The record is a 75-nucleotide sequence from Haemonchus placei, which matches "mir-5928 microRNA precursor family" in Rfam.
The family's consensus secondary structure was predicted with RNAalifold.
The family has 5 seed sequences and 1,672 matches in Rfam 15.1.
[Rfam]
RNA sequence: GGCGCAAACUUGAAGUAGAGUACAUUAGUAUGGUCAGAUGAUCGUACUAAUUGACUUUACUUCAAAUUUGGACCC
Numbered sequence: 001g002g003c004g005c006a007a008a009c010u011u012g013a014a015g016u017a018g019a020g021u022a023c024a025u026u027a028g029u030a031u032g033g034u035c036a037g038a039u040g041a042u043c044g045u046a047c048u049a050a051u052u053g054a055c056u057u058u059a060c061u062u063c064a065a066a067u068u069u070g071g072a073c074c075c
Stems, first nucleotide, its partner, number of pairs: 001074002005070004011064011025050006032043004
Rfam links the family to the GO terms miRNA-mediated post-transcriptional gene silencing and RISC complex.